[Rfam]
RNA sequence: UGGCUGUAGCUACAUAGAAGAGAUUUCAAUCAGAGAAGUUUUACUGGCCGCUUCUUGUUCAUUCCAUCAACAAAUCUGCUUACCGAGCUUCUCACGUCC
Numbered sequence: 001u002g003g004c005u006g007u008a009g010c011u012a013c014a015u016a017g018a019a020g021a022g023a024u025u026u027c028a029a030u031c032a033g034a035g036a037a038g039u040u041u042u043a044c045u046g047g048c049c050g051c052u053u054c055u056u057g058u059u060c061a062u063u064c065c066a067u068c069a070a071c072a073a074a075u076c077u078g079c080u081u082a083c084c085g086a087g088c089u090u091c092u093c094a095c096g097u098c099c
Stems, first nucleotide, its partner, number of pairs: 033093008046080003050076001052074002055070003